Glycine riboswitch aptamer: a 123-nucleotide RNA from Ralstonia solanacearum. A search with the family's covariance model found it, with a score of 43 bits. Rfam links the family to the GO term glycine biosynthetic process.
[Rfam]
RNA sequence: CGGCUGCACUCUGGAGAGCGGCGCCGCGCCAUCAUCGCAGGCGCCCACCGAAGGGGCUCACGGAACCGCCGGCGCGUUGCGCCGCUUCCCAAUCUCUCAGGUACCAAGGACAGAGGGGCCACC
Numbered sequence: 001c002g003g004c005u006g007c008a009c010u011c012u013g014g015a016g017a018g019c020g021g022c023g024c025c026g027c028g029c030c031a032u033c034a035u036c037g038c039a040g041g042c043g044c045c046c047a048c049c050g051a052a053g054g055g056g057c058u059c060a061c062g063g064a065a066c067c068g069c070c071g072g073c074g075c076g077u078u079g080c081g082c083c084g085c086u087u088c089c090c091a092a093u094c095u096c097u098c099a100g101g102u103a104c105c106a107a108g109g110a111c112a113g114a115g116g117g118g119c120c121a122c123c
Base pairs, nucleotide, nucleotide: 007117009115010114011113012112013111020045021044022043023042024041025040047102048101049100050098051097054096055095056094062089063088064087065086